[Rfam]
RNA: MIR5084 microRNA precursor family
RNA sequence: UCGUGGGUUGAGAUCCUCUGCAAUACCGUAUGGUGCUGUAGUGUCGAUGACAUAUGGGGCCAGGUCCCACAUGGCAGUGACUGUACAGCACCGUACAGUACUGCAGAGGAUCCUAACCCCCA
Dot-bracket structure: ..(.(((((..(((((((((((.(((.(((((((((((((..........(((.((((((...)))))).)))..........))))))))))))).))).)))))))))))..))))).).
Numbered sequence: 001u002c003g004u005g006g007g008u009u010g011a012g013a014u015c016c017u018c019u020g021c022a023a024u025a026c027c028g029u030a031u032g033g034u035g036c037u038g039u040a041g042u043g044u045c046g047a048u049g050a051c052a053u054a055u056g057g058g059g060c061c062a063g064g065u066c067c068c069a070c071a072u073g074g075c076a077g078u079g080a081c082u083g084u085a086c087a088g089c090a091c092c093g094u095a096c097a098g099u100a101c102u103g104c105a106g107a108g109g110a111u112c113c114u115a116a117c118c119c120c121c122a
Stems, first nucleotide, its partner, number of pairs: 003121001005119005012112011024100003028096013051073003055069006